[Rfam]
RNA sequence: AAAGUCCCUGUGGGGUAAGGCAGGCGAGCCGCCCCAGCCCCGAGUCAUGCGCCUGCUACCGUAAGGUAACCGGUGAAGCGUUGACAGGGGUGCCAGUAGGCUAAGUAUUGAGCUGCGAAAUCAAAUAGUUUGAGGUGCUGAUGUUGUUAUGUUCUGCAGAAAGCAAAAUCACCAAUUGCGCUAAAUCGCAAGUGGCUGGUGAACCUCACGCAGUCGUAGACCU
Numbered sequence: 001a002a003a004g005u006c007c008c009u010g011u012g013g014g015g016u017a018a019g020g021c022a023g024g025c026g027a028g029c030c031g032c033c034c035c036a037g038c039c040c041c042g043a044g045u046c047a048u049g050c051g052c053c054u055g056c057u058a059c060c061g062u063a064a065g066g067u068a069a070c071c072g073g074u075g076a077a078g079c080g081u082u083g084a085c086a087g088g089g090g091u092g093c094c095a096g097u098a099g100g101c102u103a104a105g106u107a108u109u110g111a112g113c114u115g116c117g118a119a120a121u122c123a124a125a126u127a128g129u130u131u132g133a134g135g136u137g138c139u140g141a142u143g144u145u146g147u148u149a150u151g152u153u154c155u156g157c158a159g160a161a162a163g164c165a166a167a168a169u170c171a172c173c174a175a176u177u178g179c180g181c182u183a184a185a186u187c188g189c190a191a192g193u194g195g196c197u198g199g200u201g202a203a204c205c206u207c208a209c210g211c212a213g214u215c216g217u218a219g220a221c222c223u
Stems, first nucleotide, its partner, number of pairs: 011036005019030003024189002038090004044085004048080002050075004055070001057068004110215001112214006131208006137164003142158003169202006176195004
A member of the RNA family "Group II catalytic intron D1-D4-6" from Endozoicomonas numazuensis, 223 nucleotides long. Rfam 15.1 lists 1,617 matches to the family in 661 species. Group II introns are found in rRNA, tRNA and mRNA of organelles in fungi, plants and protists, and also in mRNA in bacteria.